[Rfam]
RNA sequence: AAUGCGAAUCCAUGAAUUUUCCGUAUAAGUGCAGGAAUUGGCCUGCACGUCUCUACCUGAUCACCGGAAUGAUCGGACUACGGAAAGUACCGCCGUGCAU
Numbered sequence: 001a002a003u004g005c006g007a008a009u010c011c012a013u014g015a016a017u018u019u020u021c022c023g024u025a026u027a028a029g030u031g032c033a034g035g036a037a038u039u040g041g042c043c044u045g046c047a048c049g050u051c052u053c054u055a056c057c058u059g060a061u062c063a064c065c066g067g068a069a070u071g072a073u074c075g076g077a078c079u080a081c082g083g084a085a086a087g088u089a090c091c092g093c094c095g096u097g098c099a100u
Stems, first nucleotide, its partner, number of pairs: 018086008029048007057076007
The family of this 100-nucleotide RNA sequence from Paenibacillus sp. oral taxon 786 is "Purine riboswitch aptamer". Its family is annotated with purine nucleobase biosynthetic process in the Gene Ontology. It scores 72 bits against the family's covariance model.